[Rfam]
RNA sequence: GGUUGCAAGUUCAAGGCCAUUGCAGAAGCACUCACACAGGUGCGGCCUUAUCAGAUUCCACCAAAUCUACAAUUUCUGCU
Numbered sequence: 001g002g003u004u005g006c007a008a009g010u011u012c013a014a015g016g017c018c019a020u021u022g023c024a025g026a027a028g029c030a031c032u033c034a035c036a037c038a039g040g041u042g043c044g045g046c047c048u049u050a051u052c053a054g055a056u057u058c059c060a061c062c063a064a065a066u067c068u069a070c071a072a073u074u075u076c077u078g079c080u
Base pairs, nucleotide, nucleotide: 014048015047016046017045018044022079023078024077025076026075027074028043029042030041031040032039053068054067055066056065057064

About this RNA
A member of the RNA family "Mammalian CPEB3 ribozyme" from Alligator sinensis, 80 nucleotides long. The match comes from Rfam's covariance-model search (37 bits).